A member of the RNA family "ASpks TB sRNA" from Streptomyces albus, 75 nucleotides long. The base pairs follow the family's consensus structure, which is taken from published work. The source organism's lineage runs through Bacteria, Actinomycetes, Streptomycetaceae, Streptomyces albus and Streptomyces albus subsp. albus. By type it is an antisense RNA.

[Rfam]
RNA sequence: CUUGAUGGAGCCGAGCCACAGCGGCCGGUCGCUCUCGCGCUGCUGCCCGUAGGUGGCGAGCAGGGCCUGCGCCUC
Numbered sequence: 001c002u003u004g005a006u007g008g009a010g011c012c013g014a015g016c017c018a019c020a021g022c023g024g025c026c027g028g029u030c031g032c033u034c035u036c037g038c039g040c041u042g043c044u045g046c047c048c049g050u051a052g053g054u055g056g057c058g059a060g061c062a063g064g065g066c067c068u069g070c071g072c073c074u075c
Stems, first nucleotide, its partner, number of pairs: 015025003032071001034069001038065001043060002047056003